This 132-nucleotide RNA from Macleaya cordata belongs to the Rfam family "MIR397 microRNA precursor family".

RNA sequence: AAAAAAAACAUCAUUGAGUGCAGCGUUGAUGAAGUCUUGACUCAUCACAAUCGUUCAUGGACGUUGGAUUUCACGUUCUUGUGAUGUGAGAUCAAUGUGAUUUCGCCAGCGCUGCAUUCAAUCAUGUUUUUA
Numbered sequence: 001a002a003a004a005a006a007a008a009c010a011u012c013a014u015u016g017a018g019u020g021c022a023g024c025g026u027u028g029a030u031g032a033a034g035u036c037u038u039g040a041c042u043c044a045u046c047a048c049a050a051u052c053g054u055u056c057a058u059g060g061a062c063g064u065u066g067g068a069u070u071u072c073a074c075g076u077u078c079u080u081g082u083g084a085u086g087u088g089a090g091a092u093c094a095a096u097g098u099g100a101u102u103u104c105g106c107c108a109g110c111g112c113u114g115c116a117u118u119c120a121a122u123c124a125u126g127u128u129u130u131u132a
Base pairs, nucleotide, nucleotide: 006129007128008127009126010125011124013122014121015120016119017118018117019116020115021114022113023112024111025110026109027108028107030105031104032103033102034101035100036099

Lineage of the source: Eukaryota > Streptophyta > Papaveraceae > Papaveroideae > Macleaya.